RNA sequence: AUACUUACCUGGCAGGGGAGAUACCAUGAUCAUGAAGGUGGUUUUCCCUGGGCGAGGCUUAUCCAUUUCACUCCGGAUGUGCUGACCCCUGUGAUUUCCCCAAAUGUGGGAAACUCGACUGCAUAGUUUGUGGUAGUGGGGGACUGCAUUUGCGCUUUCCCCGG
Number, nucleotide and partner (000 for none) at each position: 001a000002u000003a000004c000005u000006u000007a000008c000009c000010u000011g000012g122013c121014a120015g119016g048017g047018g046019a045020g044021a043022u000023a042024c041025c040026a039027u038028g000029a000030u000031c000032a000033u000034g000035a000036a000037g000038g027039u026040g025041g024042u023043u021044u020045u019046c018047c017048c016049u000050g089051g088052g087053c000054g086055a000056g083057g082058c081059u000060u079061a078062u077063c076064c075065a000066u000067u000068u000069c000070a000071c000072u000073c000074c000075g064076g063077a062078u061079g060080u000081g058082c057083u056084g000085a000086c054087c052088c051089c050090u000091g000092u117093g116094a115095u113096u112097u111098c000099c109100c108101c000102a000103a000104a000105u000106g000107u000108g100109g099110g000111a097112a096113a095114c000115u094116c093117g092118a000119c015120u014121g013122c012123a000124u000125a000126g000127u000128u000129u000130g000131u000132g000133g000134u000135a000136g000137u163138g162139g161140g160141g159142g000143a158144c000145u000146g155147c154148a000149u000150u000151u000152g000153c000154g147155c146156u000157u000158u143159c141160c140161c139162c138163g137164g000
RNA: U1 spliceosomal RNA